RNA sequence: GUUUUGCGUUAGGGAUUGAGGCGGUAUCCUUUUUCUGGUUUUUCUCCAGAAAAAGAUAUAGCCGAAAGCCCGACCCGAC
Numbered sequence: 001g002u003u004u005u006g007c008g009u010u011a012g013g014g015a016u017u018g019a020g021g022c023g024g025u026a027u028c029c030u031u032u033u034u035c036u037g038g039u040u041u042u043u044c045u046c047c048a049g050a051a052a053a054a055g056a057u058a059u060a061g062c063c064g065a066a067a068g069c070c071c072g073a074c075c076c077g078a079c
Stems, first nucleotide, its partner, number of pairs: 012071003016067002021062002026057003032052007
This 79-nucleotide RNA sequence from Flavobacterium psychrophilum belongs to the Rfam family "Flavo-1 RNA".
The family's RNA type in Rfam is small RNA.
The sequence is in the family's curated seed alignment.